[Rfam]
RNA: Small nucleolar RNA SNORA65
Organism: Denticeps clupeoides
RNA sequence: CCCGCCACUAUACUUGUCUUCCUGGUUGACUUGUAUGUUCCAGUGGGGGCUGAUAGAGACCCAGCUCUAGGAAGCAGGAUUGCCCAGACACAUGGGUAAUUCUGUGCCGAAAGGACUGGGACAUGC
Numbered sequence: 001c002c003c004g005c006c007a008c009u010a011u012a013c014u015u016g017u018c019u020u021c022c023u024g025g026u027u028g029a030c031u032u033g034u035a036u037g038u039u040c041c042a043g044u045g046g047g048g049g050c051u052g053a054u055a056g057a058g059a060c061c062c063a064g065c066u067c068u069a070g071g072a073a074g075c076a077g078g079a080u081u082g083c084c085c086a087g088a089c090a091c092a093u094g095g096g097u098a099a100u101u102c103u104g105u106g107c108c109g110a111a112a113g114g115a116c117u118g119g120g121a122c123a124u125g126c
Base pairs, nucleotide, nucleotide: 005046006045007044008043009042018033021028061119062118063117064116065114066113068111070108071107075104076103077102078101079100080099083096084095085094